[Rfam]
RNA sequence: UGGUAGAUGCACCCUGGUUUGAACCCUAGAGACCAAUCUCUAGGGUUUUUUUAA
Number, nucleotide and partner (000 for none) at each position: 001u000002g013003g012004u011005a000006g000007a000008u000009g000010c000011a004012c003013c002014c000015u000016g000017g000018u000019u000020u000021g000022a000023a046024c045025c044026c043027u042028a041029g040030a039031g038032a037033c000034c000035a000036a000037u032038c031039u030040c029041u028042a027043g026044g025045g024046u023047u000048u000049u000050u000051u000052u000053a000054a000

This 54-nucleotide RNA sequence from Kamptonema sp. PCC 6506 belongs to the Rfam family "Nitrogen stress-induced RNA 1". For this family Rfam cites "Heterocyst-specific transcription of NsiR1, a non-coding RNA encoded in a tandem array of direct repeats in cyanobacteria" (Ionescu et al., J Mol Biol, 2010). The source organism's lineage runs through Bacteria, Cyanobacteriota, Cyanophyceae, Oscillatoriophycideae and Kamptonema. The base pairs follow the family's consensus structure. It is annotated as a small RNA. The match comes from Rfam's covariance-model search (53 bits).